[Rfam]
RNA sequence: UGAAAAUAGAAUAUUCAACCAAAGACAGUAGGUGCUGUUAUAGCUUAAAUUUACCUGCCGAGGUUGGAGUGAUAAUGCCUUGAAUUUGUUAUUUCCUAGGCUCAUUUAGCUGUGAAAAUAACAAAUUACAGCAUAGAUUUCAGUAUCAGUCUCCAGCUUGCGGCAGCGGAGACUUUUUUACUUUUUUG
Numbered sequence: 001u002g003a004a005a006a007u008a009g010a011a012u013a014u015u016c017a018a019c020c021a022a023a024g025a026c027a028g029u030a031g032g033u034g035c036u037g038u039u040a041u042a043g044c045u046u047a048a049a050u051u052u053a054c055c056u057g058c059c060g061a062g063g064u065u066g067g068a069g070u071g072a073u074a075a076u077g078c079c080u081u082g083a084a085u086u087u088g089u090u091a092u093u094u095c096c097u098a099g100g101c102u103c104a105u106u107u108a109g110c111u112g113u114g115a116a117a118a119u120a121a122c123a124a125a126u127u128a129c130a131g132c133a134u135a136g137a138u139u140u141c142a143g144u145a146u147c148a149g150u151c152u153c154c155a156g157c158u159u160g161c162g163g164c165a166g167c168g169g170a171g172a173c174u175u176u177u178u179u180a181c182u183u184u185u186u187u188g
Base pairs, nucleotide, nucleotide: 028058029057030056031055032054033053034044035043036042149173150172151171152170153169154168156167157166158165
Dot-bracket structure: ...........................(((((((((.....)))........))))))..........................................................................................((((((.(((......)))))))))...............
A member of the RNA family "Ribosomal protein L10 leader" from Halanaerobacter jeridensis, 188 nucleotides long. Rfam classes the family as a cis-regulatory leader.